RNA sequence: CAAACGGCUUUUUUCAAAGCCACCGAAAGUACGCAAUUGGUGAUAU
Numbered sequence: 001c002a003a004a005c006g007g008c009u010u011u012u013u014u015c016a017a018a019g020c021c022a023c024c025g026a027a028a029g030u031a032c033g034c035a036a037u038u039g040g041u042g043a044u045a046u
Stems, first nucleotide, its partner, number of pairs: 006021006

Description:
This 46-nucleotide RNA sequence from Parnassius apollo belongs to the Rfam family "Histone 3' UTR stem-loop". A reference for the family is Williams and Marzluff (1995), "The sequence of the stem and flanking sequences at the 3' end of histone mRNA are critical determinants for the binding of the stem-loop binding protein", Nucleic Acids Res. From the family's description: The mRNAs of metazoan histone genes lack a poly-A tail. 3' end processing occurs at a site between a highly conserved stem-loop (modelled by this family) and a purine rich region around 20 nts downstream (the histone downstream element, or HDE). The stem-loop is bound by a 31 kDa stem-loop binding protein (SLBP - also termed the histone hairpin binding protein, or HBP). Together with U7 snRNA binding of the HDE, SLBP binding nucleate s the formation of the processing complex. The histone 3' UTR stem-loop is also involved in nucleocytoplasmic transport of the mRNA, and in stability regulation and translation efficiency in the cytoplasm. The match comes from Rfam's covariance-model search (36 bits). The base pairs follow the family's consensus structure, which is taken from published work.